[Rfam]
RNA sequence: AAUCAGCGUACAGCGACGGGGACGUGUCCCUGAUGCGGUGCUGAGGGAACGGAGCCUCACCAAAAGCGGCCACAGAUGCCGGAAAGGUGAAAAAUAACUUUGACAGGUAGGGUUUGGUAGGACGGAAACGUCUCGAAGAAGCCGGGCCUG
Numbered sequence: 001a002a003u004c005a006g007c008g009u010a011c012a013g014c015g016a017c018g019g020g021g022a023c024g025u026g027u028c029c030c031u032g033a034u035g036c037g038g039u040g041c042u043g044a045g046g047g048a049a050c051g052g053a054g055c056c057u058c059a060c061c062a063a064a065a066g067c068g069g070c071c072a073c074a075g076a077u078g079c080c081g082g083a084a085a086g087g088u089g090a091a092a093a094a095u096a097a098c099u100u101u102g103a104c105a106g107g108u109a110g111g112g113u114u115u116g117g118u119a120g121g122a123c124g125g126a127a128a129c130g131u132c133u134c135g136a137a138g139a140a141g142c143c144g145g146g147c148c149u150g
Base pairs, nucleotide, nucleotide: 003044004043005042006041007040008039011038013036014035015034018031019030020029021028022027046056047055057090058089059088060087061086067081068080069079070078104150105149106148107147108146110143111142113140114139115138120133121132122131123130124129
RNA: RT-3 RNA